[Rfam]
RNA sequence: GCAUGACUCUUCAACCUCAGGACUUGCAGAAUUAAUGGAAUGCUGUCCUAAGGUUGUUGAGUUGUGC
Numbered sequence: 001g002c003a004u005g006a007c008u009c010u011u012c013a014a015c016c017u018c019a020g021g022a023c024u025u026g027c028a029g030a031a032u033u034a035a036u037g038g039a040a041u042g043c044u045g046u047c048c049u050a051a052g053g054u055u056g057u058u059g060a061g062u063u064g065u066g067c
Base pairs, nucleotide, nucleotide: 001067002066003065007061008060009059012056013055014054015053016052017051019049020048021047022046023045026043027042028041
Source information: The family of this 67-nucleotide RNA from Homo sapiens is "mir-676 microRNA precursor family". On this family, see Mineno et al., Nucleic Acids Res 2006: "The expression profile of microRNAs in mouse embryos". The family's consensus secondary structure was predicted with RNAalifold. NCBI's taxonomy places the organism under Eukaryota, Vertebrata, Eutheria, Hominoidea, Homo. It is one of the family's seed sequences.